[Rfam]
RNA sequence: CCUUUAAGGGGUGAUGCUGUGCGUUUAUGUUAAAUUAAAUAUUCAUAAGCGUAUAGCUUUUCCCCUUAAAUG
Numbered sequence: 001c002c003u004u005u006a007a008g009g010g011g012u013g014a015u016g017c018u019g020u021g022c023g024u025u026u027a028u029g030u031u032a033a034a035u036u037a038a039a040u041a042u043u044c045a046u047a048a049g050c051g052u053a054u055a056g057c058u059u060u061u062c063c064c065c066u067u068a069a070a071u072g
Stems, first nucleotide, its partner, number of pairs: 003070005009064003013060002017056005024049006
The record is a 72-nucleotide RNA sequence from Ceratitis capitata, which matches "mir-965 microRNA precursor family" in Rfam. Its family is annotated with miRNA-mediated post-transcriptional gene silencing and RISC complex in the Gene Ontology. A search with the family's covariance model found it, with a score of 72 bits.